[Rfam]
RNA sequence: AACCCCCGGCAGUGCCGGGGGUUCCGAAAAAGCUUUAGCGUUUCAUAGGAAAGAAAAACUCCCUUUGAUACAAUAAAGAUGUGGUCUGCCAACUGCACUUAAAGUAUCAAAAG
Numbered sequence: 001a002a003c004c005c006c007c008g009g010c011a012g013u014g015c016c017g018g019g020g021g022u023u024c025c026g027a028a029a030a031a032g033c034u035u036u037a038g039c040g041u042u043u044c045a046u047a048g049g050a051a052a053g054a055a056a057a058a059c060u061c062c063c064u065u066u067g068a069u070a071c072a073a074u075a076a077a078g079a080u081g082u083g084g085u086c087u088g089c090c091a092a093c094u095g096c097a098c099u100u101a102a103a104g105u106a107u108c109a110a111a112a113g
Stems, first nucleotide, its partner, number of pairs: 001023010029042002032039002062113001064111007074101001077100002080097006
RNA: STnc490 Hfq binding RNA
Organism: [Clostridium] leptum